Annotation
Shown here is a 73-nucleotide RNA sequence from Scleropages formosus, a member of the family "mir-148/mir-152 microRNA precursor family". The base pairs follow the family's consensus structure, which was predicted with RNAalifold. Lineage of the source: Eukaryota > Craniata > Actinopteri > Neopterygii > Scleropages.

[Rfam]
RNA sequence: UGAAAUCAAAGUUCUGUAACACGUGGACUCUGAAUGUGAUGGAAGUCAGUGCACUACAGAACUUUCUUUUCGG
Numbered sequence: 001u002g003a004a005a006u007c008a009a010a011g012u013u014c015u016g017u018a019a020c021a022c023g024u025g026g027a028c029u030c031u032g033a034a035u036g037u038g039a040u041g042g043a044a045g046u047c048a049g050u051g052c053a054c055u056a057c058a059g060a061a062c063u064u065u066c067u068u069u070u071c072g073g
Base pairs, nucleotide, nucleotide: 004069005068008065009064010063011062012061013060014059015058016057020051021050022049026047027046028045029044